Background
The record is a 54-nucleotide sequence from Oxynema aestuarii, which matches "Nitrogen stress-induced RNA 1" in Rfam. It is annotated as a small RNA.
RNA sequence: UGGUAGAUGCACCCUGAUGUCCAAACCCCCGGGUUCGUUCUGGGGGUUUUUUAU
Number, nucleotide and partner (000 for none) at each position: 001u000002g013003g012004u011005a000006g000007a000008u000009g000010c000011a004012c003013c002014c000015u000016g000017a000018u000019g000020u000021c000022c000023a000024a000025a000026c046027c045028c044029c043030c042031g041032g040033g039034u000035u000036c000037g000038u000039u033040c032041u031042g030043g029044g028045g027046g026047u000048u000049u000050u000051u000052u000053a000054u000
A reference for the family is Ionescu et al. (2010), "Heterocyst-specific transcription of NsiR1, a non-coding RNA encoded in a tandem array of direct repeats in cyanobacteria", J Mol Biol.